[Rfam]
RNA sequence: AGCUUUAUGGCGAUGGGGCGCUGUUUGGCGCAUCAUCUUCAUACCUCCCUGUUGGACUACGGCCGAGCUUUGUGCUCGGCCUUUUUU
Numbered sequence: 001a002g003c004u005u006u007a008u009g010g011c012g013a014u015g016g017g018g019c020g021c022u023g024u025u026u027g028g029c030g031c032a033u034c035a036u037c038u039u040c041a042u043a044c045c046u047c048c049c050u051g052u053u054g055g056a057c058u059a060c061g062g063c064c065g066a067g068c069u070u071u072g073u074g075c076u077c078g079g080c081c082u083u084u085u086u087u
Stems, first nucleotide, its partner, number of pairs: 008041003012037005061081008

The record is an 87-nucleotide RNA from Roseivivax sp. THAF197b, which matches "Singlet oxygen resistance RNA X" in Rfam. About the family: SorX (RSs2461)like SorY is a singlet oxygen induced sRNA that counteracts oxidative stress by targeting mRNA for a transporter in Rhodobacter. It also has an impact on resistance against organic hydroperoxides. It targets SD sequence of potA mRNA via an aSD sequence. Gene Ontology term of the family: response to photooxidative stress. The match comes from Rfam's covariance-model search (47 bits).